[Rfam]
RNA sequence: AACCCUUCGCAGAGGCAAUAUCGUAACCAAUGAAGGUCUACUGAGGUGCGAUUAUUGCUAGUUGAAAACUUUUCUAUAAUUAAAAGAAAAUUUUAUUUUUUUUUACUAUCUGAGUCUUUUAGUUGAAA
Numbered sequence: 001a002a003c004c005c006u007u008c009g010c011a012g013a014g015g016c017a018a019u020a021u022c023g024u025a026a027c028c029a030a031u032g033a034a035g036g037u038c039u040a041c042u043g044a045g046g047u048g049c050g051a052u053u054a055u056u057g058c059u060a061g062u063u064g065a066a067a068a069c070u071u072u073u074c075u076a077u078a079a080u081u082a083a084a085a086g087a088a089a090a091u092u093u094u095a096u097u098u099u100u101u102u103u104u105a106c107u108a109u110c111u112g113a114g115u116c117u118u119u120u121a122g123u124u125g126a127a128a
Base pairs, nucleotide, nucleotide: 020052021051022050023049024048026047027046028045034042035041085101086100087099088098089097090096091095117128118127119126120125